The record is a 122-nucleotide RNA sequence from Pelomonas sp. Root1444, which matches "Burkholderia RNA 11" in Rfam.
[Rfam]
Nucleotides: 122
Stems, first nucleotide, its partner, number of pairs: 010049002014045002017042002021038003025034002051121005057115002060112001062110001063105001065103001067099002072093001074091001076089001078088001080087002
Number, partner (000 for none) and nucleotide at each position: 001000g002000c003000a004000a005000c006000c007000u008000c009000a010049a011048g012000c013000u014045g015044g016000c017042g018041c019000a020000u021038g022037a023036a024000g025034g026033c027000c028000u029000g030000g031000c032000c033026g034025u035000g036023u037022u038021c039000c040000g041018g042017u043000c044015c045014c046000u047000c048011u049010u050000g051121g052120g053119c054118a055117u056000c057115u058114c059000g060112u061000g062110g063105a064000u065103g066000u067099g068098g069000u070000u071000c072093u073000u074091c075000g076089g077000c078088g079000c080087g081086g082000u083000g084000u085000u086081c087080c088078u089076c090000a091074g092000c093072a094000a095000c096000u097000u098068c099067c100000c101000g102000g103065c104000c105063u106000u107000c108000g109000c110062c111000a112060a113000g114058g115057a116000a117055g118054u119053g120052c121051u122000g
The organism belongs to Roseateles, within Bacteria. On this family, see Ramos et al., Genomics 2013: "Experimental identification of small non-coding regulatory RNAs in the opportunistic human pathogen Burkholderia cenocepacia J2315". The match comes from Rfam's covariance-model search (84 bits). Pairs were carried over by alignment from the consensus structure, which was predicted with RNAfold. Rfam describes the family as follows. Co-purified with Hfq, expression confirmed by Northern blot. Predicted target marZ. Overlaps coding sequence.